Record summary:
Shown here is a 157-nucleotide RNA from Desertifilum tharense, a member of the family "c-di-AMP riboswitch aptamer (ydaO/yuaA leader)". Rfam links the family to the GO terms regulation of gene expression and cyclic-di-AMP binding.
[Rfam]
RNA sequence: AACGUGCGAUCGCGCAGUUUAAAGGAAGAGCGGAGGAACCAAGUGUCCUAAACGGGGCGUAUCUCAAAUCCAAUUAAGGAGUCGAUCCUUAAGGAGAGAGGGGGAUCUUCCAACCCUAGCCCGUCAGCUAACUUCGUAGGCAAUGGAAGAAGAUUGA
Numbered sequence: 001a002a003c004g005u006g007c008g009a010u011c012g013c014g015c016a017g018u019u020u021a022a023a024g025g026a027a028g029a030g031c032g033g034a035g036g037a038a039c040c041a042a043g044u045g046u047c048c049u050a051a052a053c054g055g056g057g058c059g060u061a062u063c064u065c066a067a068a069u070c071c072a073a074u075u076a077a078g079g080a081g082u083c084g085a086u087c088c089u090u091a092a093g094g095a096g097a098g099a100g101g102g103g104g105a106u107c108u109u110c111c112a113a114c115c116c117u118a119g120c121c122c123g124u125c126a127g128c129u130a131a132c133u134u135c136g137u138a139g140g141c142a143a144u145g146g147a148a149g150a151a152g153a154u155u156g157a
Stems, first nucleotide, its partner, number of pairs: 012141002018029003030137006040054001055122003063098003101116003
Dot-bracket structure: ...........((....(((......)))((((((....(.............)(((.....(((..............................)))..(((..........)))...))).........))))))..))................